Shown here is a 244-nucleotide RNA sequence from Streptomyces sp. TverLS-915, a member of the family "Actinobacteria sRNA Ms_IGR-5". A search with the family's covariance model found it, with a score of 85 bits. NCBI's taxonomy places the organism under Bacteria, Bacillati, Actinomycetota, Kitasatosporales, Streptomyces.
RNA sequence: ACAUGAGAAGGGAGGUGGUUCGGAGAAUGUAUGAGUACCGGACGCGUGAGGUGACUGCGGGCUAGCGGCCCCUGUCCCCGCACUCUUGUGCGGUGGCCGGAAGCGUGUGGAAGAACCGGACCGGGAAACCGGACCAGUUCACGUCGCCGCCGGCCCAAUCCCAGCAGUACACCCGACCCGCAAGCCGCCGGUAUGUCCGGCCGGCUCUCCCGCAAGGGAGACCACGGCUUGCGGGUCGACUGCG
Numbered sequence: 001a002c003a004u005g006a007g008a009a010g011g012g013a014g015g016u017g018g019u020u021c022g023g024a025g026a027a028u029g030u031a032u033g034a035g036u037a038c039c040g041g042a043c044g045c046g047u048g049a050g051g052u053g054a055c056u057g058c059g060g061g062c063u064a065g066c067g068g069c070c071c072c073u074g075u076c077c078c079c080g081c082a083c084u085c086u087u088g089u090g091c092g093g094u095g096g097c098c099g100g101a102a103g104c105g106u107g108u109g110g111a112a113g114a115a116c117c118g119g120a121c122c123g124g125g126a127a128a129c130c131g132g133a134c135c136a137g138u139u140c141a142c143g144u145c146g147c148c149g150c151c152g153g154c155c156c157a158a159u160c161c162c163a164g165c166a167g168u169a170c171a172c173c174c175g176a177c178c179c180g181c182a183a184g185c186c187g188c189c190g191g192u193a194u195g196u197c198c199g200g201c202c203g204g205c206u207c208u209c210c211c212g213c214a215a216g217g218g219a220g221a222c223c224a225c226g227g228c229u230u231g232c233g234g235g236u237c238g239a240c241u242g243c244g
Base pairs, nucleotide, nucleotide: 015058016057017056018055019054060155061154062153063152065150066149068148070146073143074142075141174238175237176236177235178234179233180232181231182230183229184228185227186226187205188204189203190202191201192200
Rfam classes the family as a small RNA.